[Rfam]
RNA sequence: GGCUUCUUGGAGCAAACUAAUAGGCUGUGUUCUUACACUAACUGUAUAAAAAGAGGAGAAAAGAAUGCCAGGUACACUUCAGUCUAGGCCAUAUGCCUGGUCUGAAUUGUGAAUGGGGAAACAUGG
Numbered sequence: 001g002g003c004u005u006c007u008u009g010g011a012g013c014a015a016a017c018u019a020a021u022a023g024g025c026u027g028u029g030u031u032c033u034u035a036c037a038c039u040a041a042c043u044g045u046a047u048a049a050a051a052a053g054a055g056g057a058g059a060a061a062a063g064a065a066u067g068c069c070a071g072g073u074a075c076a077c078u079u080c081a082g083u084c085u086a087g088g089c090c091a092u093a094u095g096c097c098u099g100g101u102c103u104g105a106a107u108u109g110u111g112a113a114u115g116g117g118g119a120a121a122c123a124u125g126g
Stems, first nucleotide, its partner, number of pairs: 004058005021044003027038004066118001068116003080104003084100006
Dot-bracket structure: ...(((((............(((...((((....))))...))).........))))).......(.(((.........(((.((((((.....)))))).))).........))).)........
This 126-nucleotide RNA sequence from Castor canadensis belongs to the Rfam family "Small nucleolar RNA SNORA51". Gene Ontology terms of the family: nucleolus and RNA processing. The family has 9 seed sequences and 2,121 matches in Rfam 15.1. From the family's description: ACA51 is a member of the H/ACA class of snoRNA that guide the sites of modification of uridines to pseudouridines. By type it is an H/ACA-box small nucleolar RNA. The family's consensus secondary structure was predicted with PFOLD.